Proteobacterial sRNA psRNA2: a 225-nucleotide sequence from Nitrosomonas europaea. A search with the family's covariance model found it, with a score of 139 bits. Lineage of the source: Bacteria > Pseudomonadati > Betaproteobacteria > Nitrosomonas > Nitrosomonas europaea.
RNA sequence: GGAUUACUCCUUUACGCUUUCGCGUUUGGUUGAUAAAGAUUCGCACCUCUAUCAAACCGGGUAAUCCCACCUCUUGGCAAGACCUGCUGUCAGAUCAAAUCUGAACUACUACAGAUAAUCUGAUGACCAAACUGGGUCUCUGAAAAAUGGUCUGACGGUAGAAACUGCCAGCCAGCAUAUAUAAAUAACGUUAUAGCAAAAACUUUUAUUUAUCGUAAAACGUAA
Numbered sequence: 001g002g003a004u005u006a007c008u009c010c011u012u013u014a015c016g017c018u019u020u021c022g023c024g025u026u027u028g029g030u031u032g033a034u035a036a037a038g039a040u041u042c043g044c045a046c047c048u049c050u051a052u053c054a055a056a057c058c059g060g061g062u063a064a065u066c067c068c069a070c071c072u073c074u075u076g077g078c079a080a081g082a083c084c085u086g087c088u089g090u091c092a093g094a095u096c097a098a099a100u101c102u103g104a105a106c107u108a109c110u111a112c113a114g115a116u117a118a119u120c121u122g123a124u125g126a127c128c129a130a131a132c133u134g135g136g137u138c139u140c141u142g143a144a145a146a147a148u149g150g151u152c153u154g155a156c157g158g159u160a161g162a163a164a165c166u167g168c169c170a171g172c173c174a175g176c177a178u179a180u181a182u183a184a185a186u187a188a189c190g191u192u193a194u195a196g197c198a199a200a201a202a203c204u205u206u207u208a209u210u211u212a213u214c215g216u217a218a219a220a221c222g223u224a225a
Stems, first nucleotide, its partner, number of pairs: 001067007009060002014025004028058004032053004037048002069223002075170003081165001085162001089106002091103005108159003113153004188216003193213004198207002